[Rfam]
RNA sequence: AUACUUACCUGGGAGAGGAGAUACUGUGAUCACGAAGGUGGUUUUCCCAGGGCCAGGCUUAUCCAUUGCACUCCGGAUGUGCUGACACAUGUGAUUUCCUCAAAUGUGGGAAACUCGACUGUAUAAUUUAUGGUGGUGGGGGACUAUGAUUGUGCUCUCCCCUG
Numbered sequence: 001a002u003a004c005u006u007a008c009c010u011g012g013g014a015g016a017g018g019a020g021a022u023a024c025u026g027u028g029a030u031c032a033c034g035a036a037g038g039u040g041g042u043u044u045u046c047c048c049a050g051g052g053c054c055a056g057g058c059u060u061a062u063c064c065a066u067u068g069c070a071c072u073c074c075g076g077a078u079g080u081g082c083u084g085a086c087a088c089a090u091g092u093g094a095u096u097u098c099c100u101c102a103a104a105u106g107u108g109g110g111a112a113a114c115u116c117g118a119c120u121g122u123a124u125a126a127u128u129u130a131u132g133g134u135g136g137u138g139g140g141g142g143a144c145u146a147u148g149a150u151u152g153u154g155c156u157c158u159c160c161c162c163u164g
Stems, first nucleotide, its partner, number of pairs: 012122001014120002017047005023042005049090001051088001056083003060079005092117003095113003099109002138163006147154002